Xanthine riboswitch aptamer (NMT1 RNA): a 45-nucleotide RNA from Ideonella sp. B508-1. The source organism's lineage runs through Bacteria, Betaproteobacteria, Burkholderiales, Sphaerotilaceae and Ideonella. The base pairs follow the family's consensus structure, which is taken from published work. The sequence is in the family's curated seed alignment. Rfam links the family to the GO term purine nucleobase binding. A reference for the family is Xu et al. (2021), "Insights into xanthine riboswitch structure and metal ion-mediated ligand recognition", Nucleic Acids Res.

[Rfam]
Nucleotides: 045
Base pairs, nucleotide, nucleotide: 001044002043003042004041005040010034013036014035016031017030018029019028020027021026
Number, partner (000 for none) and nucleotide at each position: 001044g002043a003042g004041u005040a006000g007000a008000a009000g010034c011000g012000u013036u014035c015000a016031g017030c018029g019028g020027c021026c022000g023000a024000a025000a026021g027020g028019c029018c030017g031016c032000c033000c034010g035014g036013a037000a038000a039000u040005u041004g042003c043002u044001c045000c